The record is a 93-nucleotide RNA from Raphanus sativus, which matches "Small nucleolar RNA snoR17" in Rfam.
RNA sequence: UAUAGUGAUGAAUAUAAUCACAAUUGUCACUACCUCUGAGGCAAUGUAUUUCUCGUUUUAUUUUGUUACUUGUGUAUAUUAUUAAGCCUUGUG
Number, nucleotide and partner (000 for none) at each position: 001u000002a000003u000004a031005g030006u029007g028008a027009u026010g000011a000012a000013u000014a000015u000016a000017a000018u000019c000020a000021c000022a000023a000024u000025u000026g009027u008028c007029a006030c005031u004032a000033c000034c000035u000036c000037u000038g000039a000040g000041g000042c000043a000044a000045u000046g000047u000048a000049u000050u000051u000052c000053u000054c000055g000056u000057u000058u000059u000060a000061u000062u000063u000064u000065g000066u000067u000068a000069c000070u000071u000072g000073u000074g000075u093076a092077u091078a090079u000080u000081a000082u000083u000084a000085a000086g000087c000088c000089u000090u078091g077092u076093g075

Rfam 15.1 lists 32 matches to the family in 14 species. On this family, see Brown et al., RNA 2001: "Multiple snoRNA gene clusters from Arabidopsis".